[Rfam]
RNA sequence: UGAUACCAGGGUCAAAAGGUCUAAACCCACAUGAGCUUGCUCAUAGGUGGGUGAAAGACCUUGGGACCCGCCCCGAUAUGAGCAUAAAAGUGGGAUGAUAAUCCCAUGAUAUGCGAAUAUUGGGGAGAAUUGCGGGAGUGCGUAGCACGGAGUAAUUCGUAGGUAUCA
Numbered sequence: 001u002g003a004u005a006c007c008a009g010g011g012u013c014a015a016a017a018g019g020u021c022u023a024a025a026c027c028c029a030c031a032u033g034a035g036c037u038u039g040c041u042c043a044u045a046g047g048u049g050g051g052u053g054a055a056a057g058a059c060c061u062u063g064g065g066a067c068c069c070g071c072c073c074c075g076a077u078a079u080g081a082g083c084a085u086a087a088a089a090g091u092g093g094g095a096u097g098a099u100a101a102u103c104c105c106a107u108g109a110u111a112u113g114c115g116a117a118u119a120u121u122g123g124g125g126a127g128a129a130u131u132g133c134g135g136g137a138g139u140g141c142g143u144a145g146c147a148c149g150g151a152g153u154a155a156u157u158c159g160u161a162g163g164u165a166u167c168a
Base pairs, nucleotide, nucleotide: 001168002167003166004165005164006163007162011067012066013065017061018060019059020058021057022056025052026051027050028049029048030047031044032043033042034041035040072124073123074122075121076120077119078118079117082114083113084112085111091106092105093104094103095102096101127158128157129156130155131154132153133152138148139147140146141145
The family of this 168-nucleotide sequence is "Clostridiales-1 RNA".
The sequence is in the family's curated seed alignment.